RNA: ZMP/ZTP riboswitch aptamer (pfl RNA motif)
RNA sequence: AGGUGUUCGCGCGACUGGCGAGAUCAGAUGGGGCACCAUCGGGGAACGCGAACGAGCAGCUGCCGCUCGCCUGGGCACCCAAC
Numbered sequence: 001a002g003g004u005g006u007u008c009g010c011g012c013g014a015c016u017g018g019c020g021a022g023a024u025c026a027g028a029u030g031g032g033g034c035a036c037c038a039u040c041g042g043g044g045a046a047c048g049c050g051a052a053c054g055a056g057c058a059g060c061u062g063c064c065g066c067u068c069g070c071c072u073g074g075g076c077a078c079c080c081a082a083c
Stems, first nucleotide, its partner, number of pairs: 004054008015043002017071005028039004061077004